[Rfam]
RNA sequence: UGUGCCAUGAUGAGUGGCGCAGGGGUACGGACCUCAGCCGGUGAUGGGGGCUGAGCGCUGCUGCAGACUCUGUCAGAGGACGAGUGGUUCACUGACGGACUGCGGCAGCGCGACACAGACGCCUGACUGAGCUCA
Dot-bracket structure: ((.((.............................................................................................................................)).))
This 135-nucleotide RNA sequence from Parambassis ranga belongs to the Rfam family "Small nucleolar RNA SNORD94".
The base pairs follow the family's consensus structure, which was predicted with RNAalifold.
It scores 71 bits against the family's covariance model.
Gene Ontology terms of the family: RNA processing and nucleolus.